Source information:
The record is a 96-nucleotide RNA sequence from Oryzihumus leptocrescens, which matches "TPP riboswitch aptamer (THI element)" in Rfam. Rfam describes the family as follows. Vitamin B(1) in its active form thiamin pyrophosphate (TPP) is an essential coenzyme that is synthesised by coupling of pyrimidine and thiazole moieties in bacteria. The previously detected thiamin-regulatory element, thi box was extended, resulting in a new, highly conserved RNA secondary structure, the THI element, which is widely distributed in eubacteria and also occurs in some archaea. The base pairs follow the family's consensus structure, which is taken from published work.
RNA sequence: GCCGGCGACGCGGGGUGCCGGUCCGCACCGGCUGAGAACACACCCGUUGAACCUGAUCUAGCUCGCACUAGCGAAGGGACGUCACCGUCAUGGUCG
Numbered sequence: 001g002c003c004g005g006c007g008a009c010g011c012g013g014g015g016u017g018c019c020g021g022u023c024c025g026c027a028c029c030g031g032c033u034g035a036g037a038a039c040a041c042a043c044c045c046g047u048u049g050a051a052c053c054u055g056a057u058c059u060a061g062c063u064c065g066c067a068c069u070a071g072c073g074a075a076g077g078g079a080c081g082u083c084a085c086c087g088u089c090a091u092g093g094u095c096g
Stems, first nucleotide, its partner, number of pairs: 007083004011046004016040001017032005052077003058071004